[Rfam]
RNA: MIR7504 microRNA precursor family
RNA sequence: AAUAGGAGCAUGGCAAAUCAGAUUUUUCCUAUUGGAUUUCAGCUUUUUUCUCUUGAAAAAUUUUAAAUCCAACUAAAAAUUGCUAAAAAUCAGGAGAAAAAAUCUGAUUUAUCAUGCUCAUAUC
Numbered sequence: 001a002a003u004a005g006g007a008g009c010a011u012g013g014c015a016a017a018u019c020a021g022a023u024u025u026u027u028c029c030u031a032u033u034g035g036a037u038u039u040c041a042g043c044u045u046u047u048u049u050c051u052c053u054u055g056a057a058a059a060a061u062u063u064u065a066a067a068u069c070c071a072a073c074u075a076a077a078a079a080u081u082g083c084u085a086a087a088a089a090u091c092a093g094g095a096g097a098a099a100a101a102a103u104c105u106g107a108u109u110u111a112u113c114a115u116g117c118u119c120a121u122a123u124c
Stems, first nucleotide, its partner, number of pairs: 002123003006119008015110013029096002032093004037088003041084002045079004